[Rfam]
Small nucleolar RNA SNORA84: a 135-nucleotide sequence from Perca fluviatilis.
RNA sequence: GCCUGGUGGUUCCUACUUCCAGCUUCAAAGUGCUGAACUGUGGGUUUUUGUAAACAGGUUCAUGUUGAUUCUGCAUUUUUAUGCAUGGAAGCUGCCACUAUAGCAGCCUUCCAUACCCCGGUUGCAGAUACAUAG
Numbered sequence: 001g002c003c004u005g006g007u008g009g010u011u012c013c014u015a016c017u018u019c020c021a022g023c024u025u026c027a028a029a030g031u032g033c034u035g036a037a038c039u040g041u042g043g044g045u046u047u048u049u050g051u052a053a054a055c056a057g058g059u060u061c062a063u064g065u066u067g068a069u070u071c072u073g074c075a076u077u078u079u080u081a082u083g084c085a086u087g088g089a090a091g092c093u094g095c096c097a098c099u100a101u102a103g104c105a106g107c108c109u110u111c112c113a114u115a116c117c118c119c120g121g122u123u124g125c126a127g128a129u130a131c132a133u134a135g
Base pairs, nucleotide, nucleotide: 001059002058003057004056007050008049012044013043014042015041016040020035021034022033023032071127073125074124075123077121078120083117085114086113087112088111090109091108092106093105094104095103
Dot-bracket structure: ((((..((...(((((...((((........))))....)))))....)).....))))...........(.(((.((....(.((((.((((((.......)))).)).))))..)..)).))).)........
Rfam links the family to the GO terms nucleolus and RNA processing. The source organism's lineage runs through Eukaryota, Gnathostomata, Euteleostomi, Osteoglossocephalai and Perca. The family's RNA type in Rfam is H/ACA-box small nucleolar RNA. For this family Rfam cites "Experimental RNomics: identification of 140 candidates for small non-messenger RNAs in the plant Arabidopsis thaliana" (Marker et al., Curr Biol, 2002). The family has 28 seed sequences and 757 matches in Rfam 15.1.